[Rfam]
RNA sequence: GGCGAUAAACGCGCGUGUAAUAAGCGGUUCGGACCCGGGGGCGGUACCCGGCGACUCCACCACAAGCAGGCUCAGGCAUACUUCGCCUGUUUCUGACGGGGUCGAAAUAGGAUCGACGGACGUGUAAAGACGAGGCCUUCGC
Numbered sequence: 001g002g003c004g005a006u007a008a009a010c011g012c013g014c015g016u017g018u019a020a021u022a023a024g025c026g027g028u029u030c031g032g033a034c035c036c037g038g039g040g041g042c043g044g045u046a047c048c049c050g051g052c053g054a055c056u057c058c059a060c061c062a063c064a065a066g067c068a069g070g071c072u073c074a075g076g077c078a079u080a081c082u083u084c085g086c087c088u089g090u091u092u093c094u095g096a097c098g099g100g101g102u103c104g105a106a107a108u109a110g111g112a113u114c115g116a117c118g119g120a121c122g123u124g125u126a127a128a129g130a131c132g133a134g135g136c137c138u139u140c141g142c
Stems, first nucleotide, its partner, number of pairs: 002142004014132003025122002029119003035051005052104007